[Rfam]
RNA sequence: UUGGGUUAAAUCGUUGUAGGUCUACACUUUGGAAAUAAAACUCAUGCAAAGUGGUGAGACAUACAUCAAUUUCAUCCAA
Numbered sequence: 001u002u003g004g005g006u007u008a009a010a011u012c013g014u015u016g017u018a019g020g021u022c023u024a025c026a027c028u029u030u031g032g033a034a035a036u037a038a039a040a041c042u043c044a045u046g047c048a049a050a051g052u053g054g055u056g057a058g059a060c061a062u063a064c065a066u067c068a069a070u071u072u073c074a075u076c077c078a079a
Stems, first nucleotide, its partner, number of pairs: 001079006008072004013067001015065004023056002025053007
A member of the RNA family "MIR5269 microRNA precursor family" from Medicago truncatula, 79 nucleotides long. Rfam links the family to the GO terms miRNA-mediated post-transcriptional gene silencing and RISC complex.